The record is a 56-nucleotide RNA sequence from Oscillatoriales cyanobacterium USR001, which matches "Nitrogen stress-induced RNA 1" in Rfam. A search with the family's covariance model found it, with a score of 54 bits. Rfam 15.1 lists 962 matches to the family in 163 species.

RNA sequence: UAGUAGAUGCACCCUGAUUAAUAAGCCUUAGCCAAUUUUGGUUAGGGCUUUUUUAU
Numbered sequence: 001u002a003g004u005a006g007a008u009g010c011a012c013c014c015u016g017a018u019u020a021a022u023a024a025g026c027c028u029u030a031g032c033c034a035a036u037u038u039u040g041g042u043u044a045g046g047g048c049u050u051u052u053u054u055a056u
Stems, first nucleotide, its partner, number of pairs: 003012002025048010
The organism belongs to Oscillatoriales, within Bacteria. A reference for the family is Ionescu et al. (2010), "Heterocyst-specific transcription of NsiR1, a non-coding RNA encoded in a tandem array of direct repeats in cyanobacteria", J Mol Biol. The pairing is the family consensus, mapped onto this sequence.